[Rfam]
RNA sequence: CUGGAGAGGGAGUGCUAGGUUGUUUAUCUAGACCAGCCAAGCUCUGGAGAGCAGUGUUGAAUCCCUGGGAAGACAGAGCAUGGGGCGUGCUGAUUUAAAAACAGAAAAUGCAAAGUUGGACCGAAAAUAUCCCGAGUCUUCCAAGCAAUCUGCUUAAGGGUUCCAAACUUACCUUCAUUCGGUGAGAAAAAAAGAAAAGCUGCCCUAUUUUUCUGUUGUCUUCUACAACUGGAACCAGCCAUUUCCCCAAAACCACCACCAUG
Numbered sequence: 001c002u003g004g005a006g007a008g009g010g011a012g013u014g015c016u017a018g019g020u021u022g023u024u025u026a027u028c029u030a031g032a033c034c035a036g037c038c039a040a041g042c043u044c045u046g047g048a049g050a051g052c053a054g055u056g057u058u059g060a061a062u063c064c065c066u067g068g069g070a071a072g073a074c075a076g077a078g079c080a081u082g083g084g085g086c087g088u089g090c091u092g093a094u095u096u097a098a099a100a101a102c103a104g105a106a107a108a109u110g111c112a113a114a115g116u117u118g119g120a121c122c123g124a125a126a127a128u129a130u131c132c133c134g135a136g137u138c139u140u141c142c143a144a145g146c147a148a149u150c151u152g153c154u155u156a157a158g159g160g161u162u163c164c165a166a167a168c169u170u171a172c173c174u175u176c177a178u179u180c181g182g183u184g185a186g187a188a189a190a191a192a193a194g195a196a197a198a199g200c201u202g203c204c205c206u207a208u209u210u211u212u213c214u215g216u217u218g219u220c221u222u223c224u225a226c227a228a229c230u231g232g233a234a235c236c237a238g239c240c241a242u243u244u245c246c247c248c249a250a251a252a253c254c255a256c257c258a259c260c261a262u263g
Stems, first nucleotide, its partner, number of pairs: 046246005067222004072217007080208008089200003094190003102152004109147003116144005123138002168186006
Record summary
Voltage-gated potassium-channel Kv1.4 IRES: a 263-nucleotide sequence from Molossus molossus. Rfam describes the family as follows. This family represents the Kv1.4 voltage-gated potassium-channel internal ribosome entry site (IRES). This region has been shown to mediate internal ribosome entry in cells derived from brain, heart, and skeletal muscle, tissues known to express Kv1.4 mRNA species. Taxonomically the source falls in Molossus (Eukaryota, Craniata, Mammalia, Laurasiatheria). The match comes from Rfam's covariance-model search (262 bits).